[Rfam]
RNA sequence: GGAGGGGACUCUGGAGAAACUCACGACAGUGAGUGCCGAAGGUGCAAGGCCCGCGGGCCGAAUCUCUCAGGCAAAAGGACAGAGCGACCGGG
Numbered sequence: 001g002g003a004g005g006g007g008a009c010u011c012u013g014g015a016g017a018a019a020c021u022c023a024c025g026a027c028a029g030u031g032a033g034u035g036c037c038g039a040a041g042g043u044g045c046a047a048g049g050c051c052c053g054c055g056g057g058c059c060g061a062a063u064c065u066c067u068c069a070g071g072c073a074a075a076a077g078g079a080c081a082g083a084g085c086g087a088c089c090g091g092g
Stems, first nucleotide, its partner, number of pairs: 009084005020033004035072003038068002042066001044064001048059002